[Rfam]
RNA: Small nucleolar RNA SNORD53/SNORD92
Organism: Branchiostoma belcheri
RNA sequence: GUGCAAUGAUGGAGAACAAAAGUGGUUUCCUGAUUUCCUAAUGAAGCCAUCUAUCUCUUGGCUGUGUCUGAGCAC
Number, nucleotide and partner (000 for none) at each position: 001g075002u074003g073004c072005a000006a000007u000008g000009a000010u000011g000012g000013a000014g000015a000016a000017c000018a000019a000020a000021a000022g000023u000024g000025g000026u000027u000028u000029c000030c000031u000032g000033a000034u000035u000036u000037c000038c000039u000040a000041a000042u000043g000044a000045a000046g000047c000048c000049a000050u000051c000052u000053a000054u000055c000056u000057c000058u000059u000060g000061g000062c000063u000064g000065u000066g000067u000068c000069u000070g000071a000072g004073c003074a002075c001